[Rfam]
Record summary: The family of this 26-nucleotide sequence is "L25-Gammaproteobacteria ribosomal protein leader". The base pairs follow the family's consensus structure, which is taken from published work. The literature on the family includes a 2020 paper in BMC Microbiol by Eckert and Weinberg, "Discovery of 20 novel ribosomal leader candidates in bacteria and archaea".
RNA sequence: CUCGUCACUCGGUCGCAGGUGGCGGG
Numbered sequence: 001c002u003c004g005u006c007a008c009u010c011g012g013u014c015g016c017a018g019g020u021g022g023c024g025g026g
Stems, first nucleotide, its partner, number of pairs: 001026008011016001